[Rfam]
RNA sequence: GACUGAAGUGCACCACUAUGAGUGGAGCCUGCGGCCUAAAUUUGACUCAACACGGGAAAACUUACCAGGUCCGAACAUAAGUGUGUAAGACAGAUUGAUAGCUCUUUCUCGAAUCUAUGGGUGGUGGUGCAUGGCCCGUUCUUAGUUCGUGGAGUGAUUUGUCUGGUUAAUUCCGAUAACGAACGAGACUCAAAUAUAUUAAAUAGAUAUCUUCAGGAUUAUGGUGUUGAAGCUUAUAUAGCCUUCAUUCAUGAUGGCAGUAAAAUGUUUAUUGUGUUUGAAUGUGUUUAUAUAAGUGGAGCCGUACCUGUUGGUUUGUCCCAUUAUAAGGACACUAGCUUCUUAAAUGGACAAAUUGCGUCUAGCAAUAAUGAGAUUGAGCAAUAACAGGUCUGUGAUGCCUUUAGAUGUCCUGGGCUGCACGCGCGCUACAAUGAAAGUAUCAACGUGUAUUUCCUAGACCGAGAGGUCCGGGUAAACCGCUGAACCACUUUCAUGCUUGGGAUUGUGAACUGAAACUGUUCACAUGAACUUGGAAUUCCCAGUAAGUGUGAGUCAUUAACUCGCAUUGAUUACGUCCCUGCCCUUUGGGGGCCA
Number, nucleotide and partner (000 for none) at each position: 001g595002a000003c590004u000005g000006a588007a587008g586009u000010g584011c583012a582013c000014c000015a578016c577017u000018a000019u000020g541021a540022g539023u538024g432025g000026a430027g429028c428029c000030u426031g425032c424033g423034g421035c420036c000037u000038a000039a000040a000041u056042u055043u054044g053045a000046c000047u000048c000049a000050a000051c000052a000053c044054g043055g042056g041057a000058a000059a000060a000061c000062u000063u000064a000065c416066c415067a414068g413069g412070u000071c410072c000073g000074a000075a000076c119077a118078u117079a116080a000081g000082u000083g000084u000085g000086u000087a000088a000089g108090a107091c000092a105093g104094a103095u000096u000097g000098a000099u000100a000101g000102c000103u094104c093105u092106u000107u090108c089109u000110c000111g000112a000113a000114u000115c000116u079117a078118u077119g076120g000121g000122u000123g404124g403125u000126g402127g401128u400129g399130c000131a000132u398133g396134g392135c391136c390137c000138g388139u387140u386141c000142u000143u000144a000145g184146u183147u182148c181149g180150u179151g160152g159153a158154g000155u000156g000157a000158u153159u152160u151161g000162u000163c000164u175165g174166g173167u000168u000169a000170a000171u000172u000173c166174c165175g164176a000177u000178a000179a150180c149181g148182a147183a146184c145185g000186a000187g000188a000189c000190u380191c379192a378193a377194a000195u349196a348197u347198a000199u346200u345201a344202a343203a000204u000205a340206g339207a000208u337209a000210u000211c000212u000213u000214c000215a000216g000217g000218a000219u000220u000221a000222u000223g000224g000225u000226g000227u000228u000229g000230a000231a000232g000233c000234u000235u000236a000237u000238a000239u000240a000241g000242c000243c000244u000245u000246c000247a000248u000249u000250c000251a000252u000253g000254a000255u000256g000257g000258c000259a000260g000261u000262a000263a000264a000265a000266u000267g000268u000269u000270u000271a000272u000273u000274g000275u000276g000277u000278u000279u000280g000281a000282a000283u000284g000285u000286g000287u000288u000289u000290a000291u000292a000293u000294a000295a000296g000297u000298g000299g000300a000301g000302c000303c000304g000305u000306a000307c000308c000309u000310g000311u000312u000313g000314g000315u000316u000317u000318g000319u000320c000321c000322c000323a000324u000325u000326a000327u000328a000329a000330g000331g000332a000333c000334a000335c000336u000337a208338g000339c206340u205341u000342c000343u202344u201345a200346a199347a197348u196349g195350g000351a000352c000353a000354a000355a369356u368357u367358g366359c365360g000361u000362c000363u000364a000365g359366c358367a357368a356369u355370a000371a000372u000373g000374a000375g000376a000377u193378u192379g191380a190381g000382c000383a000384a000385u000386a140387a139388c138389a000390g136391g135392u134393c000394u000395g000396u133397g000398a132399u129400g128401c127402c126403u124404u123405u000406a000407g000408a000409u000410g071411u000412c069413c068414u067415g066416g065417g000418c000419u000420g035421c034422a000423c033424g032425c031426g030427c000428g028429c027430u026431a000432c024433a000434a000435u000436g495437a494438a493439a492440g491441u490442a000443u000444c000445a000446a000447c000448g000449u000450g480451u000452a000453u000454u000455u000456c475457c474458u000459a000460g471461a470462c469463c468464g000465a000466g000467a000468g463469g462470u461471c460472c000473g000474g457475g456476u000477a000478a000479a000480c450481c000482g000483c000484u000485g000486a000487a000488c000489c000490a441491c440492u439493u438494u437495c436496a000497u000498g000499c000500u000501u000502g532503g000504g000505a000506u000507u527508g526509u525510g524511a523512a522513c521514u000515g000516a000517a000518a000519c000520u000521g513522u512523u511524c510525a509526c508527a507528u000529g000530a000531a000532c502533u000534u000535g000536g000537a000538a023539u022540u021541c020542c000543c000544a000545g000546u000547a000548a570549g569550u568551g567552u566553g565554a564555g563556u000557c000558a000559u000560u000561a000562a000563c555564u554565c553566g552567c551568a550569u549570u548571g000572a000573u000574u000575a000576c000577g016578u015579c000580c000581c000582u012583g011584c010585c000586c008587u007588u006589u000590g003591g000592g000593g000594g000595c001596c000597a000
Eukaryotic small subunit ribosomal RNA: a 597-nucleotide part of an RNA from Drosophila mojavensis. Rfam links the family to the GO terms structural constituent of ribosome and ribosome. The literature on the family includes a 2001 paper in Science by Yusupov et al., "Crystal structure of the ribosome at 5.5 A resolution".